[Rfam]
The record is a 118-nucleotide sequence from Clostridium uliginosum, which matches "Fluoride riboswitch aptamer (crcB RNA motif)" in Rfam.
RNA sequence: AUAUAUUUAGGUGAUGGAGUUCGCCUUUAACCGCAUAAAACAUAUUCAAAAAUAUGACAAGGCAAUAUGCUAGUUUAUUUUUUUGAAUGCGCCUAAUGCUAAUGACUCCUACAAAAGA
Numbered sequence: 001a002u003a004u005a006u007u008u009a010g011g012u013g014a015u016g017g018a019g020u021u022c023g024c025c026u027u028u029a030a031c032c033g034c035a036u037a038a039a040a041c042a043u044a045u046u047c048a049a050a051a052a053u054a055u056g057a058c059a060a061g062g063c064a065a066u067a068u069g070c071u072a073g074u075u076u077a078u079u080u081u082u083u084u085g086a087a088u089g090c091g092c093c094u095a096a097u098g099c100u101a102a103u104g105a106c107u108c109c110u111a112c113a114a115a116a117g118a
Stems, first nucleotide, its partner, number of pairs: 010025004016109006033099004

A search with the family's covariance model found it, with a score of 48 bits.